RNA sequence: GACCUAACCUCCGCCGACUGGCGGAGCAGGGUUAAAAAACUCAUGGACGAUACUGAACCCCGUGUUCAGCACUCGUCCAUGAGUCAUAGCUCGAAAGGGCUAUGGGCCGCAAGGCC
Numbered sequence: 001g002a003c004c005u006a007a008c009c010u011c012c013g014c015c016g017a018c019u020g021g022c023g024g025a026g027c028a029g030g031g032u033u034a035a036a037a038a039a040c041u042c043a044u045g046g047a048c049g050a051u052a053c054u055g056a057a058c059c060c061c062g063u064g065u066u067c068a069g070c071a072c073u074c075g076u077c078c079a080u081g082a083g084u085c086a087u088a089g090c091u092c093g094a095a096a097g098g099g100c101u102a103u104g105g106g107c108c109g110c111a112a113g114g115c116c
Stems, first nucleotide, its partner, number of pairs: 001033004009026007040083011053069006085104008105116004

The family of this 116-nucleotide RNA is "LOOT RNA". Pairs were carried over by alignment from the consensus structure, which is taken from published work.